Shown here is a 183-nucleotide sequence from Lentilactobacillus parafarraginis, a member of the family "Lysine riboswitch aptamer".

RNA sequence: AUAAUCAUUAGAGGUCGCAACCAACAAGAGUAGUCAGUGAAGUUCCUGUUUGAACGUUGAAGCUGAUGAAAGGGGCGGUUGCCGAAGCACCAAGGUAUACAGGCCUUGGCACGCUGGGACUUAGCUUAACAGGCUUUGGACUGUCGCAGUUGAAAACGUCGACUGCGGGGCGCUAACGACGAC
Numbered sequence: 001a002u003a004a005u006c007a008u009u010a011g012a013g014g015u016c017g018c019a020a021c022c023a024a025c026a027a028g029a030g031u032a033g034u035c036a037g038u039g040a041a042g043u044u045c046c047u048g049u050u051u052g053a054a055c056g057u058u059g060a061a062g063c064u065g066a067u068g069a070a071a072g073g074g075g076c077g078g079u080u081g082c083c084g085a086a087g088c089a090c091c092a093a094g095g096u097a098u099a100c101a102g103g104c105c106u107u108g109g110c111a112c113g114c115u116g117g118g119a120c121u122u123a124g125c126u127u128a129a130c131a132g133g134c135u136u137u138g139g140a141c142u143g144u145c146g147c148a149g150u151u152g153a154a155a156a157c158g159u160c161g162a163c164u165g166c167g168g169g170g171c172g173c174u175a176a177c178g179a180c181g182a183c
Stems, first nucleotide, its partner, number of pairs: 006178001008176004017082006025074001033067006086115003090109006116142002120138001123135004144168007

Gene Ontology term of the family: lysine biosynthetic process. A search with the family's covariance model found it, with a score of 86 bits. The source organism's lineage runs through Bacteria, Bacillati, Bacilli, Lactobacillales and Lentilactobacillus parafarraginis.